[Rfam]
RNA sequence: UGCGCAAGGCGUGUUUCAUCACGAUGUUGGGGAACGAGACGCCUUUCAGCCGCGCCGUGCGGAUGUAUUGCGCUGUCAUCACUUCGGUCAUCGAUGCGCGGGUCAUCCGUGCGAUAUAUCCCAUUCCGUAAAGCGAAAUGGUCAGCACCGGCAGAAAGAAGUUUUCGAAAUUCGCGCUUUC
Numbered sequence: 001u002g003c004g005c006a007a008g009g010c011g012u013g014u015u016u017c018a019u020c021a022c023g024a025u026g027u028u029g030g031g032g033a034a035c036g037a038g039a040c041g042c043c044u045u046u047c048a049g050c051c052g053c054g055c056c057g058u059g060c061g062g063a064u065g066u067a068u069u070g071c072g073c074u075g076u077c078a079u080c081a082c083u084u085c086g087g088u089c090a091u092c093g094a095u096g097c098g099c100g101g102g103u104c105a106u107c108c109g110u111g112c113g114a115u116a117u118a119u120c121c122c123a124u125u126c127c128g129u130a131a132a133g134c135g136a137a138a139u140g141g142u143c144a145g146c147a148c149c150g151g152c153a154g155a156a157a158g159a160a161g162u163u164u165u166c167g168a169a170a171u172u173c174g175c176g177c178u179u180u181c
Base pairs, nucleotide, nucleotide: 005140006139010135011134012133014131015130016128021124028123029122030121031120040111041110042109046105048103050101051100052099053098054097055075057073058072059071060070061069062068082096084094085093086092145181147179149174150173151172154165155164156163157162
Description: Ruegeria cis52 sRNA: a 181-nucleotide sequence from Sulfitobacter sp. JL08. For this family Rfam cites "Experimental Identification of Small Non-Coding RNAs in the Model Marine Bacterium Ruegeria pomeroyi DSS-3" (Rivers et al., Front Microbiol, 2016). NCBI's taxonomy places the organism under Bacteria, Pseudomonadota, Alphaproteobacteria, Rhodobacterales, Sulfitobacter. Rfam classes the family as a small RNA. The family has 2 seed sequences and 277 matches in Rfam 15.1.